Notes: This 162-nucleotide RNA from Carnegiea gigantea belongs to the Rfam family "U1 spliceosomal RNA". On this family, see Zwieb, Nucleic Acids Res 1997: "The uRNA database". U1 is a small nuclear RNA (snRNA) component of the spliceosome (involved in pre-mRNA splicing). Rfam classes the family as a spliceosomal small nuclear RNA.
RNA sequence: AUACUUACCUGGAUGGGGUCAAUGGGUGAUCAAGAGGGCCCAUAGCCUAAGGGGGUGACCUCCAUUGCACUCGAGAAGUGUGCCUGCCUAACGUCUUCCAAAAGUGGGAGAGCGUAUGUCAUAAUUUGUGGUCGUGGGGGCCUACGUUCACGCAGCCCUUUA
Numbered sequence: 001a002u003a004c005u006u007a008c009c010u011g012g013a014u015g016g017g018g019u020c021a022a023u024g025g026g027u028g029a030u031c032a033a034g035a036g037g038g039c040c041c042a043u044a045g046c047c048u049a050a051g052g053g054g055g056u057g058a059c060c061u062c063c064a065u066u067g068c069a070c071u072c073g074a075g076a077a078g079u080g081u082g083c084c085u086g087c088c089u090a091a092c093g094u095c096u097u098c099c100a101a102a103a104g105u106g107g108g109a110g111a112g113c114g115u116a117u118g119u120c121a122u123a124a125u126u127u128g129u130g131g132u133c134g135u136g137g138g139g140g141c142c143u144a145c146g147u148u149c150a151c152g153c154a155g156c157c158c159u160u161u162a
Base pairs, nucleotide, nucleotide: 012120013119014118015117016048017047018046019045021043023042024041025040026039027038050089051088052087055083056082057081060078061077062075091115092114093113094111095110096109098107099106136161137160138159139158140157143154145152146151